[Rfam]
RNA sequence: CCAGUUGACCGGGCGGCCGCUGCGCGUUUACGCGGAGAGGAAAGUCCGGGCUCCACGAAAACACGGUGCCGGGUAACGCCCGGCGGGGGCGACCCCAGGGAAAGUGCCACAGAAAGCAAACCGCCAUGUUAUGACAUGGUAAGGGUGAAAGGGUGCGGUAAGAGCGCACCGCGGACCUGGCAACAGGGACGGCACGGUAAACCCCACCGGGAGCAAAACCGAAUAGGGAUGAUGGGGGCUCCGGCUCCGGCGGCGUUUUCGCUGCUUGUCAUCCGGGUUGGUUGCACGAAAGGACUGGCAACAGUUCUUCUAGAUGAAUGGCCGCCACGUUUGCCCGGAAGGGCAGGCCCUACAGAACCCGGCUUACAGGUCAACUGGUGAC
Numbered sequence: 001c002c003a004g005u006u007g008a009c010c011g012g013g014c015g016g017c018c019g020c021u022g023c024g025c026g027u028u029u030a031c032g033c034g035g036a037g038a039g040g041a042a043a044g045u046c047c048g049g050g051c052u053c054c055a056c057g058a059a060a061a062c063a064c065g066g067u068g069c070c071g072g073g074u075a076a077c078g079c080c081c082g083g084c085g086g087g088g089g090c091g092a093c094c095c096c097a098g099g100g101a102a103a104g105u106g107c108c109a110c111a112g113a114a115a116g117c118a119a120a121c122c123g124c125c126a127u128g129u130u131a132u133g134a135c136a137u138g139g140u141a142a143g144g145g146u147g148a149a150a151g152g153g154u155g156c157g158g159u160a161a162g163a164g165c166g167c168a169c170c171g172c173g174g175a176c177c178u179g180g181c182a183a184c185a186g187g188g189a190c191g192g193c194a195c196g197g198u199a200a201a202c203c204c205c206a207c208c209g210g211g212a213g214c215a216a217a218a219c220c221g222a223a224u225a226g227g228g229a230u231g232a233u234g235g236g237g238g239c240u241c242c243g244g245c246u247c248c249g250g251c252g253g254c255g256u257u258u259u260c261g262c263u264g265c266u267u268g269u270c271a272u273c274c275g276g277g278u279u280g281g282u283u284g285c286a287c288g289a290a291a292g293g294a295c296u297g298g299c300a301a302c303a304g305u306u307c308u309u310c311u312a313g314a315u316g317a318a319u320g321g322c323c324g325c326c327a328c329g330u331u332u333g334c335c336c337g338g339a340a341g342g343g344c345a346g347g348c349c350c351u352a353c354a355g356a357a358c359c360c361g362g363c364u365u366a367c368a369g370g371u372c373a374a375c376u377g378g379u380g381a382c
Stems, first nucleotide, its partner, number of pairs: 001378010011367001012326007020037002023034004042365003046362005051213004064209005069083005084098001085096004099204002104202002106198003121144002123140007152170006171193001172191002176187004217283004227274006255265002290309008

Bacterial RNase P class A: a 382-nucleotide RNA sequence from Pelagibacterium lentulum.
It is annotated as a ribozyme.
A search with the family's covariance model found it, with a score of 326 bits.
NCBI's taxonomy places the organism under Bacteria, Pseudomonadati, Pseudomonadota, Hyphomicrobiales, Pelagibacterium.